RNA sequence: UAAAUAUCUCGUUAGGUGAGGUUCCUACAAAGAUAUACGCUACUGCCCAGAAAUGUCGAGAGACGCCAAUGGGUCAGCAGGUACUGCCGAAUUAAGGUUUUACUUAAUGUAGCUGACAACAUUCAUUUUAUAUGAAUGCUUAUUGCUCAAAGCUUUGUAGUGCUAAAACUCAACGGAUGGAGAAAAGGU
Numbered sequence: 001u002a003a004a005u006a007u008c009u010c011g012u013u014a015g016g017u018g019a020g021g022u023u024c025c026u027a028c029a030a031a032g033a034u035a036u037a038c039g040c041u042a043c044u045g046c047c048c049a050g051a052a053a054u055g056u057c058g059a060g061a062g063a064c065g066c067c068a069a070u071g072g073g074u075c076a077g078c079a080g081g082u083a084c085u086g087c088c089g090a091a092u093u094a095a096g097g098u099u100u101u102a103c104u105u106a107a108u109g110u111a112g113c114u115g116a117c118a119a120c121a122u123u124c125a126u127u128u129u130a131u132a133u134g135a136a137u138g139c140u141u142a143u144u145g146c147u148c149a150a151a152g153c154u155u156u157g158u159a160g161u162g163c164u165a166a167a168a169c170u171c172a173a174c175g176g177a178u179g180g181a182g183a184a185a186a187g188g189u
Stems, first nucleotide, its partner, number of pairs: 005185001007183004011174002013095001015170003020164003025160008039113005045074005054065004080104004086098003115148002